Bacterial RNase P class A: a 336-nucleotide sequence from Pseudoramibacter alactolyticus.
Nucleotides: 336
Base pairs, nucleotide, nucleotide: 001332002331003330004329005328006327007326008325009324010323011321012302013301014300015299016298017297018296020031021030022029023028036319037318038317040316041315042314043313044312045201046200047199048198052236053235054234055233057197058196059195060194061193062076063075064074065073066072077091078089079088080087081086092192093191097190098189099186100185114132115131116128117127118126119125140158141157142156143155144154145153160181161179162178163177164176165175166174168173205257206256207255208254215246216245217244218243227241228240229239230238231237265284266283267282268281269278270277271276
Number, partner (000 for none) and nucleotide at each position: 001332u002331g003330a004329c005328u006327a007326g008325g009324c010323c011321g012302g013301a014300u015299a016298a017297u018296c019000g020031c021030g022029g023028g024000g025000c026000a027000a028023c029022c030021u031020g032000a033000g034000g035000a036319a037318a038317g039000u040316c041315c042314g043313a044312g045201c046200u047199c048198c049000a050000c051000a052236g053235g054234g055233c056000a057197g058196a059195a060194u061193g062076c063075c064074g065073g066072a067000u068000a069000a070000c071000g072066u073065c074064c075063g076062g077091u078089g079088a080087a081086g082000g083000c084000a085000a086081c087080u088079u089078u090000a091077a092192g093191g094000c095000a096000a097190g098189u099186g100185c101000a102000a103000c104000a105000g106000a107000a108000a109000g110000c111000a112000a113000a114132c115131c116128g117127c118126c119125g120000c121000a122000u123000g124000u125119c126118g127117g128116u129000a130000a131115g132114g133000g134000u135000g136000a137000a138000a139000g140158g141157g142156u143155g144154a145153g146000g147000c148000a149000a150000g151000a152000g153145c154144u155143c156142a157141c158140c159000a160181g161179u162178g163177g164176u165175u166174a167000a168173a169000g170000u171000a172000a173168u174166u175165g176164g177163c178162c179161a180000g181160c182000u183000g184000g185100g186099u187000a188000a189098a190097c191093c192092c193061c194060a195059u196058u197057c198048g199047g200046a201045g202000c203000a204000a205257g206256a207255c208254c209000a210000a211000g212000a213000a214000a215246g216245a217244g218243u219000g220000u221000u222000a223000a224000a225000a226000g227241g228240c229239g230238g231237c232000g233055g234054c235053c236052c237231g238230u239229c240228g241227c242000u243218g244217c245216u246215c247000a248000a249000u250000g251000g252000u253000a254208g255207g256206u257205c258000g259000c260000u261000u262000g263000a264000g265284u266283c267282c268281g269278c270277c271276g272000g273000u274000g275000a276271c277270g278269g279000c280000g281268c282267g283266g284265a285000a286000c287000c288000a289000g290000a291000u292000a293000g294000a295000u296018g297017a298016u299015u300014a301013u302012c303000a304000a305000g306000a307000c308000a309000g310000a311000a312044c313043u314042c315041g316040g317038c318037u319036u320000a321011c322000a323010g324009g325008c326007u327006u328005a329004g330003u331002c332001g333000u334000a335000a336000a